[Rfam]
Annotation
ASpks TB sRNA: a 75-nucleotide RNA from Actinoplanes cyaneus. By type it is an antisense RNA. Lineage of the source: Bacteria > Actinomycetota > Micromonosporales > Micromonosporaceae > Actinoplanes. It scores 70 bits against the family's covariance model.
RNA sequence: CUUGACCGAGCCCAGCCGGGCCGGGUGGCCGGUGGUCCGGUCCUGUCCGUAGGUGGCCAGCACCGCCUGCGCCUC
Numbered sequence: 001c002u003u004g005a006c007c008g009a010g011c012c013c014a015g016c017c018g019g020g021c022c023g024g025g026u027g028g029c030c031g032g033u034g035g036u037c038c039g040g041u042c043c044u045g046u047c048c049g050u051a052g053g054u055g056g057c058c059a060g061c062a063c064c065g066c067c068u069g070c071g072c073c074u075c
Stems, first nucleotide, its partner, number of pairs: 014026001016024002032070002038065002043060003047056003